[Rfam]
RNA sequence: CCGCCCGUCGCUACUACCGAUCGAAUGGCUUAGUAAGGCGUUCGGACUAGCUUAGGGAGGUCGGUAACGACUACCCGGAGCCGGAAAGUUCGUCAAACUUGGUCAUUUAGAGGAAGUAAAAGUCGUAAUAAGGUUUCCGUAGGUGAACCUACGAAAGGAUUAUUA
Dot-bracket structure: (.(..((.(..((((.((..(.((((((((.(((..((((..(...((.((((.(((.((((......)))).))).)))).))...)..))))..))).)))))))))..)).))))...).))...)..).(((.((((((....)))))).)))........
This 165-nucleotide part of an RNA from Pseudovirgaria hyperparasitica belongs to the Rfam family "Eukaryotic small subunit ribosomal RNA". The family's consensus secondary structure is taken from published work. Rfam 15.1 lists 75,755 matches to the family in 2,556 species. Clan: SSU clan. A reference for the family is Yusupov et al. (2001), "Crystal structure of the ribosome at 5.5 A resolution", Science.